[Rfam]
Nucleotides: 071
Stems, first nucleotide, its partner, number of pairs: 001071004005066010016055006025048004
Number, partner (000 for none) and nucleotide at each position: 001071g002070g003069a004068a005066g006065c007064u008063g009062g010061u011060u012059u013058c014057a015000c016055a017054u018053g019052g020051u021050g022000a023000c024000u025048u026047a027046g028045a029000u030000u031000u032000a033000a034000c035000c036000a037000u038000c039000g040000c041000a042000g043000u044000a045028u046027c047026u048025a049000g050021c051020a052019c053018c054017a055016u056000u057014u058013g059012a060011a061010a062009u063008c064007a065006g066005u067000g068004u069003u070002u071001u

About this RNA
The family of this 71-nucleotide sequence from Leptobrachium leishanense is "mir-29 microRNA precursor family". This family represents the microRNA (miRNA) precursors mir-29.